[Rfam]
RNA sequence: GGUCAUGCUUUUCCACAGCUUUCUUGAACUUCUUUGUCUUGCUUAAUCUGUGCAUAUAUAGAUCACUACAUGUAUAGCAACUAUGUAUAGCGCCAUGGAAGUUCAAGAAAGCUGUGGGAGAAGAUGGCAA
Number, nucleotide and partner (000 for none) at each position: 001g000002g000003u127004c126005a125006u124007g000008c000009u000010u000011u000012u000013c117014c116015a115016c000017a113018g112019c111020u110021u109022u108023c000024u106025u105026g104027a103028a000029c101030u100031u099032c098033u097034u000035u000036g000037u000038c000039u000040u000041g000042c000043u000044u000045a000046a000047u000048c000049u000050g000051u000052g000053c000054a000055u000056a000057u000058a000059u000060a000061g000062a000063u000064c000065a000066c000067u000068a000069c000070a000071u000072g000073u000074a000075u000076a000077g000078c000079a000080a000081c000082u000083a000084u000085g000086u000087a000088u000089a000090g000091c000092g000093c000094c000095a000096u000097g033098g032099a031100a030101g029102u000103u027104c026105a025106a024107g000108a022109a021110a020111g019112c018113u017114g000115u015116g014117g013118g000119a000120g000121a000122a000123g000124a006125u005126g004127g003128c000129a000130a000

Shown here is a 130-nucleotide RNA from Salix koriyanagi, a member of the family "MIR396 microRNA precursor family". The literature on the family includes a 2005 paper in Plant Cell by Sunkar et al., "Cloning and characterization of microRNAs from rice". Its family is annotated with RISC complex and miRNA-mediated post-transcriptional gene silencing in the Gene Ontology. NCBI's taxonomy places the organism under Eukaryota, Streptophytina, Spermatophyta, Malpighiales, Salix.